Rfam assigns this 165-nucleotide RNA from Eubacterium pyruvativorans to the family "Glycine riboswitch aptamer". The organism belongs to Eubacterium, within Bacteria. It scores 35 bits against the family's covariance model.
[Rfam]
RNA sequence: AUGAAGCAGCCGGGAAAUUUCCGGAGGCCAGCUGAGAAUGCGUGAAGAGGGCGCAUCGGUGCAUGUGGAUGCACAGCGGGUCCGGGGGAAACCGAUGGGGAAAGCAGCUGCGGGUGAUCCGCCGCAGACUGUGAAGCUUUCAGGUGAACAGACCGGGUGCAGAUG
Numbered sequence: 001a002u003g004a005a006g007c008a009g010c011c012g013g014g015a016a017a018u019u020u021c022c023g024g025a026g027g028c029c030a031g032c033u034g035a036g037a038a039u040g041c042g043u044g045a046a047g048a049g050g051g052c053g054c055a056u057c058g059g060u061g062c063a064u065g066u067g068g069a070u071g072c073a074c075a076g077c078g079g080g081u082c083c084g085g086g087g088g089a090a091a092c093c094g095a096u097g098g099g100g101a102a103a104g105c106a107g108c109u110g111c112g113g114g115u116g117a118u119c120c121g122c123c124g125c126a127g128a129c130u131g132u133g134a135a136g137c138u139u140u141c142a143g144g145u146g147a148a149c150a151g152a153c154c155g156g157g158u159g160c161a162g163a164u165g
Base pairs, nucleotide, nucleotide: 006160007159008158010156011155012154013153020089021088022087091145092144093143094141095140098139099138100137104132105131106130107129
Dot-bracket structure: .....(((.((((......(((................................................................))).(((((..(((...((((.....................))))....))))).))).......)))).))).....